Background
Group II catalytic intron D1-D4-3: a 177-nucleotide RNA from Duganella sp. Root198D2. Pairs were carried over by alignment from the consensus structure. Lineage of the source: Bacteria > Betaproteobacteria > Burkholderiales > Oxalobacteraceae > Duganella.
[Rfam]
RNA sequence: GUUACCGCGAGGUAGGGUCUGAAGGAAGUCGAACCCAAAGCUGCGGGGCGAUGAACAAGAACCGGAUGGUAGGCGUGGUGCAUUCGGGGCGAGCGGGCACGUAACCGCGAAGCCCUCCAUCUGCAAAACUGGAUGCACUUUGUAAAUCCGGCGCUCGCGCAGCGACAGUGACGUGUC
Numbered sequence: 001g002u003u004a005c006c007g008c009g010a011g012g013u014a015g016g017g018u019c020u021g022a023a024g025g026a027a028g029u030c031g032a033a034c035c036c037a038a039a040g041c042u043g044c045g046g047g048g049c050g051a052u053g054a055a056c057a058a059g060a061a062c063c064g065g066a067u068g069g070u071a072g073g074c075g076u077g078g079u080g081c082a083u084u085c086g087g088g089g090c091g092a093g094c095g096g097g098c099a100c101g102u103a104a105c106c107g108c109g110a111a112g113c114c115c116u117c118c119a120u121c122u123g124c125a126a127a128a129c130u131g132g133a134u135g136c137a138c139u140u141u142g143u144a145a146a147u148c149c150g151g152c153g154c155u156c157g158c159g160c161a162g163c164g165a166c167a168g169u170g171a172c173g174u175g176u177c
Base pairs, nucleotide, nucleotide: 002015003014004013005012006011028177030175031174035170036168040163041162042161043160044159045158046156047155048154049153050152062151063150064149065148066147067146073143074142075141077139078138079137080136081135082134083133087115088114089113090112093108094107095106096105